[Rfam]
RNA sequence: ACAGAGAACUGCAGAUAGUCGCUGCGGGUUUCUCGCAGAGGAAAGUCCGGACUCCUUCGGAAAUGAUGCUAGUUAAUUACUAGGCAGCGGCUCUCUGCAGUGCCGCUGACAGCAAGCGCCACAGAAAAUAUACCGCCUUUGGGUAAGGGUGAAAGGGCGAGGUAAGAGCUCACCGCGUUUUGGCGACAAAACGGCACGGCAAGCCUCAUCAGGAGCAAGAUCGAGCAGCAAAGGAUAUUCCGAUCCUGUUUUGCGGGUUGAUUGCAUAAAUUUAUAUAGCGAUAUAUAAAGUGAGACAGAUGAUUAUCCUUGACAGAAUCCGGCUUACCAGUUCUCUGUUUUU
Numbered sequence: 001a002c003a004g005a006g007a008a009c010u011g012c013a014g015a016u017a018g019u020c021g022c023u024g025c026g027g028g029u030u031u032c033u034c035g036c037a038g039a040g041g042a043a044a045g046u047c048c049g050g051a052c053u054c055c056u057u058c059g060g061a062a063a064u065g066a067u068g069c070u071a072g073u074u075a076a077u078u079a080c081u082a083g084g085c086a087g088c089g090g091c092u093c094u095c096u097g098c099a100g101u102g103c104c105g106c107u108g109a110c111a112g113c114a115a116g117c118g119c120c121a122c123a124g125a126a127a128a129u130a131u132a133c134c135g136c137c138u139u140u141g142g143g144u145a146a147g148g149g150u151g152a153a154a155g156g157g158c159g160a161g162g163u164a165a166g167a168g169c170u171c172a173c174c175g176c177g178u179u180u181u182g183g184c185g186a187c188a189a190a191a192c193g194g195c196a197c198g199g200c201a202a203g204c205c206u207c208a209u210c211a212g213g214a215g216c217a218a219g220a221u222c223g224a225g226c227a228g229c230a231a232a233g234g235a236u237a238u239u240c241c242g243a244u245c246c247u248g249u250u251u252u253g254c255g256g257g258u259u260g261a262u263u264g265c266a267u268a269a270a271u272u273u274a275u276a277u278a279g280c281g282a283u284a285u286a287u288a289a290a291g292u293g294a295g296a297c298a299g300a301u302g303a304u305u306a307u308c309c310u311u312g313a314c315a316g317a318a319u320c321c322g323g324c325u326u327a328c329c330a331g332u333u334c335u336c337u338g339u340u341u342u343u
Stems, first nucleotide, its partner, number of pairs: 001339010011328001014308007022038007043326003047323005052215004059241004064211005069083005084110001085108007111206002116204002118200003133148002135144003156174002159171003175195001176193007219263004228254004232247005271290008

Background: This 343-nucleotide sequence from Treponema pallidum belongs to the Rfam family "Bacterial RNase P class A". Rfam classes the family as a ribozyme. Lineage of the source: Bacteria > Spirochaetia > Treponematales > Treponema pallidum > Treponema pallidum subsp. pallidum. From the family's description: Ribonuclease P (RNase P) is a ubiquitous endoribonuclease, found in archaea, bacteria and eukarya as well as chloroplasts and mitochondria.